The record is a 109-nucleotide sequence from Artemisia annua, which matches "MIR394 microRNA precursor family" in Rfam. Pairs were carried over by alignment from the consensus structure, which was predicted with WAR. Rfam 15.1 lists 724 matches to the family in 216 species. The match comes from Rfam's covariance-model search (67 bits). The organism belongs to Artemisia, within Eukaryota. Gene Ontology terms of the family: RISC complex and miRNA-mediated post-transcriptional gene silencing.
RNA sequence: CAUGCAGAGCCAGUUUGGCAUUCUGUCCACCUCCGUGUUUUUGCGUUAAAGAUGGCGAUAAUUAUUGAUAAUUAAGGAGGUGGCCAGCCUGCUAAAUUUGCUCUGUAGG
Dot-bracket structure: ..............((((((...((.((((((((.........................................)))))))).))...))))))..............